[Rfam]
RNA sequence: AUUCCCGUCGUGGGCGCUCCCCUCGGGGGCGUCGCGGCGGCCCUGGCUCAUGGAGUCAGGGCCAUCGAGGACGGGAUCAAUUAUGCAACAGGGAACCUACCCGGUUGCUCCUU
Numbered sequence: 001a002u003u004c005c006c007g008u009c010g011u012g013g014g015c016g017c018u019c020c021c022c023u024c025g026g027g028g029g030c031g032u033c034g035c036g037g038c039g040g041c042c043c044u045g046g047c048u049c050a051u052g053g054a055g056u057c058a059g060g061g062c063c064a065u066c067g068a069g070g071a072c073g074g075g076a077u078c079a080a081u082u083a084u085g086c087a088a089c090a091g092g093g094a095a096c097c098u099a100c101c102c103g104g105u106u107g108c109u110c111c112u113u
Stems, first nucleotide, its partner, number of pairs: 001077005007072003013033006019026002035067003039063011085108005091102003
RNA: J750 non-coding RNA (containing SLSL761 and SL783)